[Rfam]
The family of this 110-nucleotide sequence from Shewanella salipaludis is "Tryptophan operon leader". The match comes from Rfam's covariance-model search (45 bits). Taxonomically the source falls in Shewanella (Bacteria, Pseudomonadota, Gammaproteobacteria, Alteromonadales). Its family is annotated with transcriptional attenuation by ribosome and tryptophan biosynthetic process in the Gene Ontology. On this family, see Kolter and Yanofsky, Annu Rev Genet 1982: "Attenuation in amino acid biosynthetic operons".
RNA sequence: AUCAUUUGGUGGUGGCACUUCCCAACUUAGCGGGUGGUGUGAAACGCUGUGCUCCUUGAAAAAGAGAACAGAUUCAACGAAGAAGCCCGCAACCAUGCGGGCUUUUUUGU
Number, nucleotide and partner (000 for none) at each position: 001a000002u000003c000004a000005u000006u000007u000008g000009g047010u046011g045012g000013u000014g000015g040016c039017a038018c037019u036020u000021c034022c033023c032024a000025a000026c000027u000028u000029a000030g000031c000032g023033g022034g021035u000036g019037g018038u017039g016040u015041g000042a000043a000044a000045c011046g010047c009048u000049g000050u000051g000052c000053u000054c000055c000056u000057u000058g000059a000060a000061a000062a000063a000064g000065a000066g000067a000068a000069c000070a000071g000072a000073u000074u000075c000076a000077a000078c000079g000080a000081a000082g000083a000084a103085g102086c101087c100088c099089g098090c097091a096092a000093c000094c000095a000096u091097g090098c089099g088100g087101g086102c085103u084104u000105u000106u000107u000108u000109g000110u000